[Rfam]
RNA: mir-427 microRNA precursor family
Organism: Xenopus tropicalis
RNA sequence: AGCACCCAAAACGGGGCUCUCUCUUGUGCAUGAAUUAUGGUGAGAAAGUGCUUUCUGUUUUGGGCGUUG
Numbered sequence: 001a002g003c004a005c006c007c008a009a010a011a012c013g014g015g016g017c018u019c020u021c022u023c024u025u026g027u028g029c030a031u032g033a034a035u036u037a038u039g040g041u042g043a044g045a046a047a048g049u050g051c052u053u054u055c056u057g058u059u060u061u062g063g064g065c066g067u068u069g
Stems, first nucleotide, its partner, number of pairs: 001068003005064011016049003020045004024040005